[Rfam]
RNA sequence: GAUUAUCACUGGGGGUGCUUGAAAAAGCUGAGAUCAUACCCUUACAACCUGCCAGAUAAUGCUGGAAAGGGAAGUGCAAGAAUACUUCU
Numbered sequence: 001g002a003u004u005a006u007c008a009c010u011g012g013g014g015g016u017g018c019u020u021g022a023a024a025a026a027g028c029u030g031a032g033a034u035c036a037u038a039c040c041c042u043u044a045c046a047a048c049c050u051g052c053c054a055g056a057u058a059a060u061g062c063u064g065g066a067a068a069g070g071g072a073a074g075u076g077c078a079a080g081a082a083u084a085c086u087u088c089u
Stems, first nucleotide, its partner, number of pairs: 007076004011042004016036001017028004048070003052065004
RNA: TPP riboswitch aptamer (THI element)
Organism: Peptoniphilus sp. BV3C26